[Rfam]
RNA: Clostridiales-3 RNA
RNA sequence: GAUACAUAAGGGUCGAAGAGGUGGCUCAUGAAUAUGGAUUUAGUGUUGAGGAAACUGAAUAUAUAGCUAUCCUCAAAAGGCUAAAAGAGGAGAUAGUGCUUCUGAUAAUUCAGAAGGGCGUCGUGAAACACAUUUUGUGGCUCGUCUGUAACUCCCGGAGGUGAGAACACCUCUUUGUACACGGGGCGAUAUAGGAGUCUAGAAGACUGGCGUGUACCUACA
Dot-bracket structure: ................................(((..(.((((((((..........))))).))).).(((((............)))))(((.((.(((((........))))).))))))))...(((.....)))..................((((((....))))))...(((((((............(((((...)))))..))))))).....